[Rfam]
RNA sequence: GUGGGUUAUGGGGACAUGUGUCCCACCACGCUGGGGGGGAAGAUCGUGGGCACCCUGUGCGCCAUAGCUGGCGUGCUGACCAUCGCCCUGCCUGUCCCCGUCAUCGUCUCGAAC
Numbered sequence: 001g002u003g004g005g006u007u008a009u010g011g012g013g014a015c016a017u018g019u020g021u022c023c024c025a026c027c028a029c030g031c032u033g034g035g036g037g038g039g040a041a042g043a044u045c046g047u048g049g050g051c052a053c054c055c056u057g058u059g060c061g062c063c064a065u066a067g068c069u070g071g072c073g074u075g076c077u078g079a080c081c082a083u084c085g086c087c088c089u090g091c092c093u094g095u096c097c098c099c100g101u102c103a104u105c106g107u108c109u110c111g112a113a114c
Base pairs, nucleotide, nucleotide: 001114002113005110008107009106010105011104013102014101015100018097020095021094037077038076040074049063050062051061
The record is a 114-nucleotide RNA from Sakesphorus luctuosus, which matches "Potassium channel RNA editing signal" in Rfam.
The base pairs follow the family's consensus structure, which is taken from published work.
It is annotated as a cis-regulatory element.
For this family Rfam cites "Control of human potassium channel inactivation by editing of a small mRNA hairpin" (Bhalla et al., Nat Struct Mol Biol, 2004).
It scores 105 bits against the family's covariance model.